[Rfam]
RNA sequence: CAUGAUUGAAGGCUGAAAUGAAAAAAAAAACUCAUAGAGUUGUGUGCUGUAAUAUCUCCAACUUCUUUUGUGUUACUUAACGAGACUGGAGUUCCAUAUCAGCACUACAUAU
Numbered sequence: 001c002a003u004g005a006u007u008g009a010a011g012g013c014u015g016a017a018a019u020g021a022a023a024a025a026a027a028a029a030a031c032u033c034a035u036a037g038a039g040u041u042g043u044g045u046g047c048u049g050u051a052a053u054a055u056c057u058c059c060a061a062c063u064u065c066u067u068u069u070g071u072g073u074u075a076c077u078u079a080a081c082g083a084g085a086c087u088g089g090a091g092u093u094c095c096a097u098a099u100c101a102g103c104a105c106u107a108c109a110u111a112u
Stems, first nucleotide, its partner, number of pairs: 044105006054093001056091004064085004

The family of this 112-nucleotide sequence from Papaver nudicaule is "Small nucleolar RNA snoR97". A search with the family's covariance model found it, with a score of 40 bits. The base pairs follow the family's consensus structure, which was predicted with WAR. A reference for the family is Marker et al. (2002), "Experimental RNomics: identification of 140 candidates for small non-messenger RNAs in the plant Arabidopsis thaliana", Curr Biol. By type it is an H/ACA-box small nucleolar RNA.